[Rfam]
RNA sequence: GCGAGCGAGUGCCGCGCGGUCUCUGCCCGGACGCGGACCCUGGCGUACUUCCCCGACGCCAGGUGCCGGUUCGGACAGGGACCACGGGGCAUUCGCCUCCGGUG
Numbered sequence: 001g002c003g004a005g006c007g008a009g010u011g012c013c014g015c016g017c018g019g020u021c022u023c024u025g026c027c028c029g030g031a032c033g034c035g036g037a038c039c040c041u042g043g044c045g046u047a048c049u050u051c052c053c054c055g056a057c058g059c060c061a062g063g064u065g066c067c068g069g070u071u072c073g074g075a076c077a078g079g080g081a082c083c084a085c086g087g088g089g090c091a092u093u094c095g096c097c098u099c100c101g102g103u104g
Stems, first nucleotide, its partner, number of pairs: 010091004015086002018083002021080005027074006034068003039063008
Dot-bracket structure: .........((((.((.((.(((((.((((((.(((..((((((((.........))))))))..))))))))).))))).)).)).)))).............

mraW RNA: a 104-nucleotide RNA sequence from Nocardia farcinica. The family's consensus secondary structure is taken from published work. NCBI's taxonomy places the organism under Bacteria, Bacillati, Actinomycetota, Nocardia, Nocardia farcinica. The family's RNA type in Rfam is cis-regulatory element.